RNA sequence: AUGGAAGUCAAUUUAGAAGAAUACAUCCAAGGGCCUUAAAAUAUGGGCAUGGGAAAAAUGGAUAGAGGGAAAGGAAACUUUUCUCACCCUCUCUCCAAAUUCCAAACAGUUUGUCUGAGUUUUUUAGCCAUUGAUCUGCACCAUUCCGUGAAGCAGAAUCCUCCAAAAUGCUGCAGAGUUUUUGGCUAAAUGCUUAGGCAUACCGGCAAGUCACAGAACGGCAACGGACUCAGUGAUGAGUCUU
Numbered sequence: 001a002u003g004g005a006a007g008u009c010a011a012u013u014u015a016g017a018a019g020a021a022u023a024c025a026u027c028c029a030a031g032g033g034c035c036u037u038a039a040a041a042u043a044u045g046g047g048c049a050u051g052g053g054a055a056a057a058a059u060g061g062a063u064a065g066a067g068g069g070a071a072a073g074g075a076a077a078c079u080u081u082u083c084u085c086a087c088c089c090u091c092u093c094u095c096c097a098a099a100u101u102c103c104a105a106a107c108a109g110u111u112u113g114u115c116u117g118a119g120u121u122u123u124u125u126a127g128c129c130a131u132u133g134a135u136c137u138g139c140a141c142c143a144u145u146c147c148g149u150g151a152a153g154c155a156g157a158a159u160c161c162u163c164c165a166a167a168a169u170g171c172u173g174c175a176g177a178g179u180u181u182u183u184g185g186c187u188a189a190a191u192g193c194u195u196a197g198g199c200a201u202a203c204c205g206g207c208a209a210g211u212c213a214c215a216g217a218a219c220g221g222c223a224a225c226g227g228a229c230u231c232a233g234u235g236a237u238g239a240g241u242c243u244u
Stems, first nucleotide, its partner, number of pairs: 060096003109203002112200003130191003227242005
The record is a 244-nucleotide RNA sequence from Ziziphus jujuba, which matches "Early nodulin 40" in Rfam. Rfam links the family to the GO term nodulation. Pairs were carried over by alignment from the consensus structure, which is taken from published work. For this family Rfam cites "Identification of conserved secondary structures and expansion segments in enod40 RNAs reveals new enod40 homologues in plants" (Gultyaev and Roussis, Nucleic Acids Res, 2007).